[Rfam]
The record is a 336-nucleotide RNA from Rhinolophus ferrumequinum, which matches "Small Cajal body-specific RNA 7" in Rfam.

RNA sequence: UGGAAAUGAUGAAAUAGAGAUAAUUGGGUGUUGAAUGUUGUAAGAUUGGAAAUUUUUAAUAUGUAAGUUAAAUAAUCUAGGUUUUAAUAUUAUAUAGCUACUUAUUGAGUGUGUGUUGGGGGGGGUGUGUGCGCGUGCAUGCUAAUAGAGGCUAUGGAAAGGGGGCCCUGAAUGGUGAUGCUGAUAUUGGAGUGCAUCUGAGGCUGUUGUAGAAAUACAUGGGUUGGUGAUUACAACACUGCCGAUGAUUAUAACCCAAGAACAGCUCACCUAAGUAGCCUCACACCCUAAAAUCUCUAACGGGUUCAUUAAACGUGGUCCCGUGAUCUGAUCCAA
Numbered sequence: 001u002g003g004a005a006a007u008g009a010u011g012a013a014a015u016a017g018a019g020a021u022a023a024u025u026g027g028g029u030g031u032u033g034a035a036u037g038u039u040g041u042a043a044g045a046u047u048g049g050a051a052a053u054u055u056u057u058a059a060u061a062u063g064u065a066a067g068u069u070a071a072a073u074a075a076u077c078u079a080g081g082u083u084u085u086a087a088u089a090u091u092a093u094a095u096a097g098c099u100a101c102u103u104a105u106u107g108a109g110u111g112u113g114u115g116u117u118g119g120g121g122g123g124g125g126u127g128u129g130u131g132c133g134c135g136u137g138c139a140u141g142c143u144a145a146u147a148g149a150g151g152c153u154a155u156g157g158a159a160a161g162g163g164g165g166c167c168c169u170g171a172a173u174g175g176u177g178a179u180g181c182u183g184a185u186a187u188u189g190g191a192g193u194g195c196a197u198c199u200g201a202g203g204c205u206g207u208u209g210u211a212g213a214a215a216u217a218c219a220u221g222g223g224u225u226g227g228u229g230a231u232u233a234c235a236a237c238a239c240u241g242c243c244g245a246u247g248a249u250u251a252u253a254a255c256c257c258a259a260g261a262a263c264a265g266c267u268c269a270c271c272u273a274a275g276u277a278g279c280c281u282c283a284c285a286c287c288c289u290a291a292a293a294u295c296u297c298u299a300a301c302g303g304g305u306u307c308a309u310u311a312a313a314c315g316u317g318g319u320c321c322c323g324u325g326a327u328c329u330g331a332u333c334c335a336a
Stems, first nucleotide, its partner, number of pairs: 001335004205238008214228001216226002218223001
A reference for the family is Darzacq et al. (2002), "Cajal body-specific small nuclear RNAs: a novel class of 2'-O-methylation and pseudouridylation guide RNAs", EMBO J.
Rfam classes the family as a small Cajal body RNA.
The match comes from Rfam's covariance-model search (335 bits).
NCBI's taxonomy places the organism under Eukaryota, Metazoa, Gnathostomata, Theria, Rhinolophus.